[Rfam]
RNA: Fungal signal recognition particle RNA
Organism: Cadophora sp. M221
RNA sequence: CGGCUGUAAUGGUCACAAACUCAAAGGAGAUAUCAAUAUCCCUCACUCUCCCAGCCAUUUCUGCUUCUCUCACGAGUCGCAACCACCAACAGUGCCCAGUCCGAACAUGGCGGUAACUUCCCACUCGUGCAGAAAACUCACGAUGCUGGCGGGGUUCUAAGCAAUGAAGCACACCGGUCUAGGGAGGUUUCACUCUGCAAACCAGACUUCACCGUGGUGUGGCGGUAUUGGAUUACAUUCGUUGGUUGGUUUGGCUGGUGGGUAUGGGUUGAGCGUCAACUUUAUUAUUUUUUGCAUGCUUUUU
Numbered sequence: 001c002g003g004c005u006g007u008a009a010u011g012g013u014c015a016c017a018a019a020c021u022c023a024a025a026g027g028a029g030a031u032a033u034c035a036a037u038a039u040c041c042c043u044c045a046c047u048c049u050c051c052c053a054g055c056c057a058u059u060u061c062u063g064c065u066u067c068u069c070u071c072a073c074g075a076g077u078c079g080c081a082a083c084c085a086c087c088a089a090c091a092g093u094g095c096c097c098a099g100u101c102c103g104a105a106c107a108u109g110g111c112g113g114u115a116a117c118u119u120c121c122c123a124c125u126c127g128u129g130c131a132g133a134a135a136a137c138u139c140a141c142g143a144u145g146c147u148g149g150c151g152g153g154g155u156u157c158u159a160a161g162c163a164a165u166g167a168a169g170c171a172c173a174c175c176g177g178u179c180u181a182g183g184g185a186g187g188u189u190u191c192a193c194u195c196u197g198c199a200a201a202c203c204a205g206a207c208u209u210c211a212c213c214g215u216g217g218u219g220u221g222g223c224g225g226u227a228u229u230g231g232a233u234u235a236c237a238u239u240c241g242u243u244g245g246u247u248g249g250u251u252u253g254g255c256u257g258g259u260g261g262g263u264a265u266g267g268g269u270u271g272a273g274c275g276u277c278a279a280c281u282u283u284a285u286u287a288u289u290u291u292u293u294g295c296a297u298g299c300u301u302u303u304u
Stems, first nucleotide, its partner, number of pairs: 002014003018302002022298002027293004032288002037271002040268003046262003051258007063080002067076003083249003087244004092238003096231005101225003105220004110215004115156001117154004121149003125143005131138002157161001165211005176203003184195003
Dot-bracket structure: .(((.......)))...((..((...((((.((...((.(((...(((..(((((((.....((..(((....)))..))..(((.((((.(((.((((((((.((((.((((.(.(((((((.(((((.((....)))))))...))).)))).)(...)...(((((......(((.....(((......))).....)))...))))))))).))))..))).)))))....)))..))))..)))..))))))).)))...))).))...............)).))))...))..))..